Source information
Rfam assigns this 134-nucleotide sequence from Heliornis fulica to the family "Small nucleolar RNA SNORA9". NCBI's taxonomy places the organism under Eukaryota, Vertebrata, Sarcopterygii, Coelurosauria, Heliornis. Gene Ontology terms of the family: RNA processing and nucleolus. The family's RNA type in Rfam is H/ACA-box small nucleolar RNA. ACA9 is a member of the H/ACA class of snoRNA that guide the sites of modification of uridines to pseudouridines.

RNA sequence: CGGCAAGGCUUCCAGCGUGGGGGGGCCUGGCGUGGCCCCCGCCAUUCCUUAAGCGUUUGCCAGAGUAUCCCCGGGACGGUUUGAGGCCUCUCCCCGCCAUUCCCGGGGAGAGGUUAUAGACAUCCCGGACAACC
Numbered sequence: 001c002g003g004c005a006a007g008g009c010u011u012c013c014a015g016c017g018u019g020g021g022g023g024g025g026c027c028u029g030g031c032g033u034g035g036c037c038c039c040c041g042c043c044a045u046u047c048c049u050u051a052a053g054c055g056u057u058u059g060c061c062a063g064a065g066u067a068u069c070c071c072c073g074g075g076a077c078g079g080u081u082u083g084a085g086g087c088c089u090c091u092c093c094c095c096g097c098c099a100u101u102c103c104c105g106g107g108g109a110g111a112g113g114u115u116a117u118a119g120a121c122a123u124c125c126c127g128g129a130c131a132a133c134c
Stems, first nucleotide, its partner, number of pairs: 003060005009055001018044003023038005072127005087113006094106003